The record is a 92-nucleotide RNA from Loxodonta africana, which matches "Small nucleolar RNA SNORD116" in Rfam.
Pairs were carried over by alignment from the consensus structure, which was predicted with PFOLD.
Gene Ontology terms of the family: nucleolus and RNA processing.
The family has 48 seed sequences and 3,260 matches in Rfam 15.1.
RNA sequence: GAAUUGACGAUGACUUCCACAUAUACAUUCCUUGGGAAUCUGAACAAAACUAGUGAAAAACCUGUAUUGUCUAGCUCAUUGACCUGUGGUCC
Numbered sequence: 001g002a003a004u005u006g007a008c009g010a011u012g013a014c015u016u017c018c019a020c021a022u023a024u025a026c027a028u029u030c031c032u033u034g035g036g037a038a039u040c041u042g043a044a045c046a047a048a049a050c051u052a053g054u055g056a057a058a059a060a061c062c063u064g065u066a067u068u069g070u071c072u073a074g075c076u077c078a079u080u081g082a083c084c085u086g087u088g089g090u091c092c
Stems, first nucleotide, its partner, number of pairs: 001092001003090003026055004032047003